[Rfam]
Record summary: Rfam assigns this 105-nucleotide RNA from Vulpes vulpes to the family "mir-8834 microRNA precursor family".

RNA sequence: AGGAGGAACAACUGCAGUGGCAGGCCCAGUUCUGCAGCCCUGGAGUCAGCUCCUGCAGUAGCUCUGGGGCUCUCUGUCUGCAGGGCCUGGAGGCUCUGGGGCGCG
Numbered sequence: 001a002g003g004a005g006g007a008a009c010a011a012c013u014g015c016a017g018u019g020g021c022a023g024g025c026c027c028a029g030u031u032c033u034g035c036a037g038c039c040c041u042g043g044a045g046u047c048a049g050c051u052c053c054u055g056c057a058g059u060a061g062c063u064c065u066g067g068g069g070c071u072c073u074c075u076g077u078c079u080g081c082a083g084g085g086c087c088u089g090g091a092g093g094c095u096c097u098g099g100g101g102c103g104c105g
Stems, first nucleotide, its partner, number of pairs: 002097004009089002012085002019078006028071007036063001040058003
Its family is annotated with RISC complex and miRNA-mediated post-transcriptional gene silencing in the Gene Ontology. A search with the family's covariance model found it, with a score of 52 bits. Rfam 15.1 lists 13,926 matches to the family in 17 species. Pairs were carried over by alignment from the consensus structure, which was predicted with RNAalifold.